The family of this 48-nucleotide RNA sequence from Ciceribacter lividus is "Guanidine-II riboswitch aptamer (mini-ykkC)". On this family, see Weinberg et al., Nucleic Acids Res 2007: "Identification of 22 candidate structured RNAs in bacteria using the CMfinder comparative genomics pipeline". The source organism's lineage runs through Bacteria, Pseudomonadati, Alphaproteobacteria, Rhizobiaceae and Ciceribacter. From the family's description: Simpler in structure and has fewer highly conserved nucleotide positions than the ykkC-yxkD leader. Despite this each of its two stem-loop structures directly bind free guanidine. Therefore, mini-ykkC RNA motif represents a distinct class of guanidine-sensing RNAs.
[Rfam]
RNA sequence: AGACCGGGACGGCCCGGUCGCGAGCGGUCAUUAGUCGGGACGACCCGG
Numbered sequence: 001a002g003a004c005c006g007g008g009a010c011g012g013c014c015c016g017g018u019c020g021c022g023a024g025c026g027g028u029c030a031u032u033a034g035u036c037g038g039g040a041c042g043a044c045c046c047g048g
Stems, first nucleotide, its partner, number of pairs: 002019007035048005
Pairs were carried over by alignment from the consensus structure, which is taken from published work.